[Rfam]
RNA sequence: UCUGCGUCAAUCCUACACUUGGCGCUUACAUACAGUGUACCAGUUACUCUAAUUGUGCUACGGGAAGGUCUGAGACAGGCAGCUAACCUCUAGCCGGGGUCUUGUGGUGACACAAGGCAAGAGGACCAGAAAUAUGUUGAUGAAGAGUAAAGUCCUUGAUUGUGUUGUAUACACAUAGAUGACACUCCAAGUCAAUUGAAAUCUCUUGUUGCCAGCAUUUUAAGUACAAUUUGUGGGCUGAAAAUCUGUGUUUUCAGAACUCAAUUCAGACUAAUCUGAUGCUGA
Numbered sequence: 001u002c003u004g005c006g007u008c009a010a011u012c013c014u015a016c017a018c019u020u021g022g023c024g025c026u027u028a029c030a031u032a033c034a035g036u037g038u039a040c041c042a043g044u045u046a047c048u049c050u051a052a053u054u055g056u057g058c059u060a061c062g063g064g065a066a067g068g069u070c071u072g073a074g075a076c077a078g079g080c081a082g083c084u085a086a087c088c089u090c091u092a093g094c095c096g097g098g099g100u101c102u103u104g105u106g107g108u109g110a111c112a113c114a115a116g117g118c119a120a121g122a123g124g125a126c127c128a129g130a131a132a133u134a135u136g137u138u139g140a141u142g143a144a145g146a147g148u149a150a151a152g153u154c155c156u157u158g159a160u161u162g163u164g165u166u167g168u169a170u171a172c173a174c175a176u177a178g179a180u181g182a183c184a185c186u187c188c189a190a191g192u193c194a195a196u197u198g199a200a201a202u203c204u205c206u207u208g209u210u211g212c213c214a215g216c217a218u219u220u221u222a223a224g225u226a227c228a229a230u231u232u233g234u235g236g237g238c239u240g241a242a243a244a245u246c247u248g249u250g251u252u253u254u255c256a257g258a259a260c261u262c263a264a265u266u267c268a269g270a271c272u273a274a275u276c277u278g279a280u281g282c283u284g285a
Stems, first nucleotide, its partner, number of pairs: 001285002004282001007279003012237006021061001024058002035049001037047003070269005078213004086100005101116006117209007138194003238257007
A member of the RNA family "Nuclear RNase P" from Diabrotica balteata, 285 nucleotides long. Rfam links the family to the GO terms ribonuclease P activity, tRNA processing and ribonuclease P complex. The family's RNA type in Rfam is ribozyme. The match comes from Rfam's covariance-model search (135 bits). A reference for the family is Frank and Pace (1998), "Ribonuclease P: unity and diversity in a tRNA processing ribozyme", Annu Rev Biochem. NCBI's taxonomy places the organism under Eukaryota, Ecdysozoa, Endopterygota, Diabroticina, Diabrotica.